Background: Shown here is a 66-nucleotide RNA sequence from Bacillus sp. J14TS2, a member of the family "Bacillaceae-1 RNA".

RNA sequence: UUUUGCGGGGCAUCGGUUAAAGGUUCGACGUCCUGUCGAAACACCGAUAGACUCGCCCGCUGCGUG
Numbered sequence: 001u002u003u004u005g006c007g008g009g010g011c012a013u014c015g016g017u018u019a020a021a022g023g024u025u026c027g028a029c030g031u032c033c034u035g036u037c038g039a040a041a042c043a044c045c046g047a048u049a050g051a052c053u054c055g056c057c058c059g060c061u062g063c064g065u066g
Stems, first nucleotide, its partner, number of pairs: 012048006025039005052066001054064003
Taxonomically the source falls in Bacillus (Bacteria, Bacillati, Bacilli, Bacillaceae). Pairs were carried over by alignment from the consensus structure, which is taken from published work. It is annotated as a small RNA. It scores 43 bits against the family's covariance model.